Nucleotides: 146
Base pairs, nucleotide, nucleotide: 002020003019004018005017006016007015028068029067030066031065032064033059034058035057036056037055038054039053040052042051043050044049082095083094084093085092097134098133099132100131
Number, partner (000 for none) and nucleotide at each position: 001000c002020u003019u004018a005017a006016c007015c008000a009000g010000u011000u012000c013000u014000c015007g016006g017005u018004u019003a020002a021000a022000c023000a024000c025000u026000a027000c028068u029067u030066g031065c032064a033059c034058g035057u036056g037055c038054u039053g040052a041000a042051u043050u044049a045000g046000u047000a048000a049044u050043a051042a052040u053039c054038a055037g056036u057035g058034c059033g060000c061000a062000a063000c064032u065031g066030c067029a068028a069000g070000g071000a072000c073000a074000a075000u076000g077000u078000a079000g080000c081000c082095u083094a084093c085092c086000u087000u088000a089000a090000a091000u092085g093084g094083u095082a096000a097134u098133g099132u100131a101000a102000a103000u104000a105000u106000u107000u108000a109000u110000a111000u112000a113000u114000u115000u116000c117000c118000a119000g120000g121000a122000g123000c124000u125000a126000g127000u128000g129000u130000g131100u132099a133098u134097a135000g136000a137000a138000u139000a140000u141000g142000g143000g144000u145000a146000g